A member of the RNA family "DUF3268 RNA", 118 nucleotides long. The family's consensus secondary structure is taken from published work. It is one of the family's seed sequences. By type it is a small RNA.
[Rfam]
Nucleotides: 118
Base pairs, nucleotide, nucleotide: 007118008117009116010115011114012113013112014111015110016109025076026075027074028073029046030045031044032043033042051070052069053068054067055066056065057064081103082102083101087099088098089097
Number, partner (000 for none) and nucleotide at each position: 001000g002000g003000c004000a005000g006000g007118g008117g009116c010115u011114u012113g013112c014111g015110u016109u017000c018000a019000g020000g021000c022000u023000u024000u025076c026075g027074g028073u029046a030045c031044g032043c033042c034000u035000g036000u037000g038000g039000u040000a041000u042033g043032g044031c045030g046029u047000c048000a049000g050000a051070c052069c053068u054067g055066g056065u057064u058000c059000a060000a061000g062000g063000g064057g065056a066055u067054c068053g069052g070051g071000g072000a073028a074027c075026c076025g077000u078000u079000a080000c081103g082102g083101a084000u085000u086000c087099u088098g089097c090000g091000c092000a093000c094000u095000g096000a097089g098088c099087g100000a101083u102082c103081c104000a105000c106000a107000a108000u109016a110015a111014c112013g113012c114011a115010a116009g117008c118007c